[Rfam]
RNA: Transposase-2 RNA
RNA sequence: GAAACGCGAACCAAGCAGCAGUCCCCGCAGACUGCCUAAGACUUGGAGCGGACGCCGGUAACGGCGUCCUGUC
Numbered sequence: 001g002a003a004a005c006g007c008g009a010a011c012c013a014a015g016c017a018g019c020a021g022u023c024c025c026c027g028c029a030g031a032c033u034g035c036c037u038a039a040g041a042c043u044u045g046g047a048g049c050g051g052a053c054g055c056c057g058g059u060a061a062c063g064g065c066g067u068c069c070u071g072u073c
Base pairs, nucleotide, nucleotide: 011046012045013044014043015042018035019034020033021032022031050069051068052067053066054065055064056063057062